[Rfam]
RNA sequence: UAGUGUUACAGUUUUUUUAGAAUUUGUCUAGCUGGCUUUCUGGGUUUUGCUAUAAAGCACUC
Numbered sequence: 001u002a003g004u005g006u007u008a009c010a011g012u013u014u015u016u017u018u019a020g021a022a023u024u025u026g027u028c029u030a031g032c033u034g035g036c037u038u039u040c041u042g043g044g045u046u047u048u049g050c051u052a053u054a055a056a057g058c059a060c061u062c
Base pairs, nucleotide, nucleotide: 035058036057037056038055039054041052042051043050
A member of the RNA family "U7 small nuclear RNA" from Callithrix jacchus, 62 nucleotides long. The base pairs follow the family's consensus structure, which was predicted with PFOLD. It scores 51 bits against the family's covariance model. About the family: Animal histone pre-mRNAs are spliced by a different mechanism than nuclear pre-mRNAs and self-splicing introns. This processing involves the U7 snRNP, which contains only one RNA species: U7. The 5' end of U7 RNA is thought to base-pair to a conserved spacer element downstream of the cleavage site in histone pre-mRNA. This family contains a number of annotated U7 pseudogenes.